[Rfam]
RNA sequence: AUGUGACUUGUGGGUUUCCCUUUGUCAUCCUUUGCCUGGGGCUCUGAGUGGGGCAGGGAUGGCAAAGGGGUGCCCAGUUGUCAUCUCC
Numbered sequence: 001a002u003g004u005g006a007c008u009u010g011u012g013g014g015u016u017u018c019c020c021u022u023u024g025u026c027a028u029c030c031u032u033u034g035c036c037u038g039g040g041g042c043u044c045u046g047a048g049u050g051g052g053g054c055a056g057g058g059a060u061g062g063c064a065a066a067g068g069g070g071u072g073c074c075c076a077g078u079u080g081u082c083a084u085c086u087c088c
Stems, first nucleotide, its partner, number of pairs: 017070006024063002028059005034054004
Source information:
The family of this 88-nucleotide sequence from Galemys pyrenaicus is "mir-204 microRNA precursor family". Its family is annotated with RISC complex and miRNA-mediated post-transcriptional gene silencing in the Gene Ontology. The match comes from Rfam's covariance-model search (97 bits).